The family of this 100-nucleotide RNA from Brevibacillus fulvus is "Guanidine-I riboswitch aptamer". Taxonomically the source falls in Brevibacillus (Bacteria, Bacillota, Caryophanales, Paenibacillaceae). This family represents a conserved RNA structure found upstream of the ykkC and yxkD genes in Bacillus subtilis and related genes in other bacteria. Pairs were carried over by alignment from the consensus structure.
RNA sequence: AAAAAUGUUUUCUAGGGUUCCGCAGCGGAAUGGCUGGUCUGGUCCAAGAGAAAACUCACAGUAUCACACUGUGCCACGGAAGGAUAAAAGCCUGGGAGAU
Numbered sequence: 001a002a003a004a005a006u007g008u009u010u011u012c013u014a015g016g017g018u019u020c021c022g023c024a025g026c027g028g029a030a031u032g033g034c035u036g037g038u039c040u041g042g043u044c045c046a047a048g049a050g051a052a053a054a055c056u057c058a059c060a061g062u063a064u065c066a067c068a069c070u071g072u073g074c075c076a077c078g079g080a081a082g083g084a085u086a087a088a089a090g091c092c093u094g095g096g097a098g099a100u
Base pairs, nucleotide, nucleotide: 007055008054009053010052011051012050015045016044020042021041022039023036024035025034026033057073058072059071060070061069062068075095077098081093082092083091
Dot-bracket structure: ......((((((..((...(((((((......))))..).)).))....)))))).((((((.....)))))).(.[...(((.......))).)..]..